[Rfam]
RNA sequence: GCCCUGUGGUUGCUGGACACUGCUGUGCCGUGCAGUGCCUGGUUGGCAGGAUGGGCCCACAGUGAUGCUGUGAUCACGCAGGGAGGCUGUGAGCCCUGAGCAGCCUCCAGAGCCCUGUCACAGCCACACCC
Numbered sequence: 001g002c003c004c005u006g007u008g009g010u011u012g013c014u015g016g017a018c019a020c021u022g023c024u025g026u027g028c029c030g031u032g033c034a035g036u037g038c039c040u041g042g043u044u045g046g047c048a049g050g051a052u053g054g055g056c057c058c059a060c061a062g063u064g065a066u067g068c069u070g071u072g073a074u075c076a077c078g079c080a081g082g083g084a085g086g087c088u089g090u091g092a093g094c095c096c097u098g099a100g101c102a103g104c105c106u107c108c109a110g111a112g113c114c115c116u117g118u119c120a121c122a123g124c125c126a127c128a129c130c131c
Stems, first nucleotide, its partner, number of pairs: 001057001003055002007048002010045001012043005019036005068123001070121005078113002082108002085105006
Dot-bracket structure: (.((..((.(.(((((..(((((........)))))..))))).).)).....)).)..........(.(((((...((..((.((((((.........)))))).))...))...))))).)........